RNA sequence: CGCGCUCCCUACAAUUAUUAGUUUAAUUGAGCAUGUGGCCAUCACGAGGAUGAUGUAACACCAGCAGUUACGGGACUUAGUCGAUAACUGCCAAAAAGGUGU
Numbered sequence: 001c002g003c004g005c006u007c008c009c010u011a012c013a014a015u016u017a018u019u020a021g022u023u024u025a026a027u028u029g030a031g032c033a034u035g036u037g038g039c040c041a042u043c044a045c046g047a048g049g050a051u052g053a054u055g056u057a058a059c060a061c062c063a064g065c066a067g068u069u070a071c072g073g074g075a076c077u078u079a080g081u082c083g084a085u086a087a088c089u090g091c092c093a094a095a096a097a098g099g100u101g102u
Stems, first nucleotide, its partner, number of pairs: 012029005040055005058102005064091007071083003
COG3943 RNA: a 102-nucleotide RNA. Rfam's curators put it in the seed alignment.